[Rfam]
RNA sequence: UUCAGAAAAAGGCACACUUCGCUGAAAAGCAAGGCCGCAAAGUCACGGGUCUAAGGCUAGAAACAACUAGCUAUGAUGGCUGGACUACCUGG
Numbered sequence: 001u002u003c004a005g006a007a008a009a010a011g012g013c014a015c016a017c018u019u020c021g022c023u024g025a026a027a028a029g030c031a032a033g034g035c036c037g038c039a040a041a042g043u044c045a046c047g048g049g050u051c052u053a054a055g056g057c058u059a060g061a062a063a064c065a066a067c068u069a070g071c072u073a074u075g076a077u078g079g080c081u082g083g084a085c086u087a088c089c090u091g092g
Stems, first nucleotide, its partner, number of pairs: 012038002017033003021030003041086004046082003049077003056071004
Rfam assigns this 92-nucleotide sequence from Pueribacillus theae to the family "c-di-GMP-I riboswitch aptamer". GEMM was predicted in a large-scale screen for bacterial structured RNA regulatory elements.